[Rfam]
RNA: Guanidine-I riboswitch aptamer
RNA sequence: CGAGUCAGCCUCUAGGGUUCCGGUUUGAGUUAGCAACGCUUAAGCGACUGGUCCGAGAGAGGCAAGCGAGUUAGAAAGUUUUUCAACCAAACUGACUUACUGCUACACGGCGGGAUAAAAGCCCGGGAGAA
Numbered sequence: 001c002g003a004g005u006c007a008g009c010c011u012c013u014a015g016g017g018u019u020c021c022g023g024u025u026u027g028a029g030u031u032a033g034c035a036a037c038g039c040u041u042a043a044g045c046g047a048c049u050g051g052u053c054c055g056a057g058a059g060a061g062g063c064a065a066g067c068g069a070g071u072u073a074g075a076a077a078g079u080u081u082u083u084c085a086a087c088c089a090a091a092c093u094g095a096c097u098u099a100c101u102g103c104u105a106c107a108c109g110g111c112g113g114g115a116u117a118a119a120a121g122c123c124c125g126g127g128a129g130a131a
Stems, first nucleotide, its partner, number of pairs: 008063005015054002020051002022048001023045008065104004106126001108129001112124003